[Rfam]
RNA sequence: AUCCAAGGUGAUUCCCUUUCUGAGGGGCCAACUAUUGCCCCUCUCAAGAAAGUAGCAAAUUAGAAUUAAAUCUGGCAUGACUAAGGUCUUCGAAGAACAGAGGUUGCUUAUUUAUUUUGCCUUUCUUUGUUUGCCUACAUGU
Numbered sequence: 001a002u003c004c005a006a007g008g009u010g011a012u013u014c015c016c017u018u019u020c021u022g023a024g025g026g027g028c029c030a031a032c033u034a035u036u037g038c039c040c041c042u043c044u045c046a047a048g049a050a051a052g053u054a055g056c057a058a059a060u061u062a063g064a065a066u067u068a069a070a071u072c073u074g075g076c077a078u079g080a081c082u083a084a085g086g087u088c089u090u091c092g093a094a095g096a097a098c099a100g101a102g103g104u105u106g107c108u109u110a111u112u113u114a115u116u117u118u119g120c121c122u123u124u125c126u127u128u129g130u131u132u133g134c135c136u137a138c139a140u141g142u
Stems, first nucleotide, its partner, number of pairs: 002064002005061002009057002019049003022043007075132001080128001084124002092115001094113003